[Rfam]
RNA: Small nucleolar RNA R160
Nucleotides: 088
Base pairs, nucleotide, nucleotide: 001088002087003086004085005084
Number, partner (000 for none) and nucleotide at each position: 001088a002087g003086c004085a005084a006000a007000a008000a009000u010000g011000a012000u013000g014000a015000a016000a017000u018000u019000u020000g021000a022000u023000a024000u025000a026000u027000g028000u029000u030000a031000c032000u033000g034000a035000a036000a037000a038000u039000u040000g041000a042000a043000a044000u045000g046000u047000u048000g049000a050000a051000u052000u053000c054000a055000a056000u057000g058000u059000c060000a061000u062000u063000u064000a065000g066000g067000u068000c069000u070000u071000c072000a073000a074000a075000g076000u077000u078000c079000u080000c081000u082000g083000a084005u085004u086003g087002c088001u